This 247-nucleotide sequence from Paenibacillus graminis belongs to the Rfam family "BsrG". On this family, see Meissner et al., J Biol Chem 2016: "In Vitro Characterization of the Type I Toxin-Antitoxin System bsrE/SR5 from Bacillus subtilis". By type it is a small RNA. About the family: bsrE, bsrG and bsrH pair through intermolecular interactions with antisense sRNAs. The organism belongs to Paenibacillus, within Bacteria.
[Rfam]
RNA sequence: AGCAAUGGAAAGGCUUAUAUGGGCGGUCGGCUAAUCUCCUUGAGGGGAGGUGAGGCCAUGGAGGUCUAUCAAGCGUUGUCCCUGAUGUUCAUGUUCGGCAUGUUCAUCAUAGCACUGCUAAACUACCUCAAAAAGAAAUAGACCGCCCUGCCCAAAGGAAACGGUCUAUCUCUGUCCAUAAACACCUUUUAAGCCACCGCCCUUAAAAGCGGCUGUUGCACCGGAGAACCGUGUUAGCGCACGGUUC
Dot-bracket structure: .((((.((...(((((.((.(((.(.(....(.(.(((((....))))).).)......((.(((.......(((..........)))........((((...............))))..))).)).............).)..)))))..(((...............).))................))))).((((........)))))).))))......(((((((((....)))))))))